Source information:
Rfam assigns this 190-nucleotide RNA from Paenibacillus larvae to the family "Lysine riboswitch aptamer".

[Rfam]
RNA sequence: GGAUGAGGUAGAGGUCGCGAUUUUCAUAAGUAGGUUAUAGGAGACGCAGGGUAGGUCAAUGACUAUAACAGAAAGGGAAAAUCGCCGAAGUUUCUUCCGGUUACUCUGGCCGAAGGGACUGGGGCUGUAUCCGAAUAGGAACAGAACUGUCACGUUUGUCACCCGGCAAACGUGGGGAGCUAUCUUCAUG
Numbered sequence: 001g002g003a004u005g006a007g008g009u010a011g012a013g014g015u016c017g018c019g020a021u022u023u024u025c026a027u028a029a030g031u032a033g034g035u036u037a038u039a040g041g042a043g044a045c046g047c048a049g050g051g052u053a054g055g056u057c058a059a060u061g062a063c064u065a066u067a068a069c070a071g072a073a074a075g076g077g078a079a080a081a082u083c084g085c086c087g088a089a090g091u092u093u094c095u096u097c098c099g100g101u102u103a104c105u106c107u108g109g110c111c112g113a114a115g116g117g118a119c120u121g122g123g124g125c126u127g128u129a130u131c132c133g134a135a136u137a138g139g140a141a142c143a144g145a146a147c148u149g150u151c152a153c154g155u156u157u158g159u160c161a162c163c164c165g166g167c168a169a170a171c172g173u174g175g176g177g178a179g180c181u182a183u184c185u186u187c188a189u190g
Base pairs, nucleotide, nucleotide: 006185007184008183009182010181011180017085018084019083020082021081022080023079024078025077034069035068036067037066038065039064040063089120090119091118092117093116094115095114096113097112099110121148122147125144126143127142128141130139131138150175151174152173153172154171155170156169157168158167
The source organism's lineage runs through Bacteria, Bacillota, Caryophanales, Paenibacillaceae and Paenibacillus larvae subsp. larvae. The match comes from Rfam's covariance-model search (127 bits). Gene Ontology term of the family: lysine biosynthetic process.